Shown here is a 148-nucleotide sequence from Paraburkholderia dinghuensis, a member of the family "Burkholderia sRNA 7".
[Rfam]
RNA sequence: GUAUUCUUGCGCCCAUGAACCGCAUCCUGUCCGCUCUCCGACGUCGCCGCUUGCCCGAAUAGGGCCUGGCUUCGUUCGCGGACGCGCGUCUGACACCCACGCGCAUGGAGUUCGAGUCACGAAAGCCACGGCCAGCCGUGGCUUUUUG
Numbered sequence: 001g002u003a004u005u006c007u008u009g010c011g012c013c014c015a016u017g018a019a020c021c022g023c024a025u026c027c028u029g030u031c032c033g034c035u036c037u038c039c040g041a042c043g044u045c046g047c048c049g050c051u052u053g054c055c056c057g058a059a060u061a062g063g064g065c066c067u068g069g070c071u072u073c074g075u076u077c078g079c080g081g082a083c084g085c086g087c088g089u090c091u092g093a094c095a096c097c098c099a100c101g102c103g104c105a106u107g108g109a110g111u112u113c114g115a116g117u118c119a120c121g122a123a124a125g126c127c128a129c130g131g132c133c134a135g136c137c138g139u140g141g142c143u144u145u146u147u148g
Base pairs, nucleotide, nucleotide: 006116007115008114011089012088014086020084031081032080033079039074040073041072043070044069045068049065050064054062122145123144124143125142126141127140128139129138130137131136
Overview:
NCBI's taxonomy places the organism under Bacteria, Pseudomonadota, Betaproteobacteria, Burkholderiales, Paraburkholderia.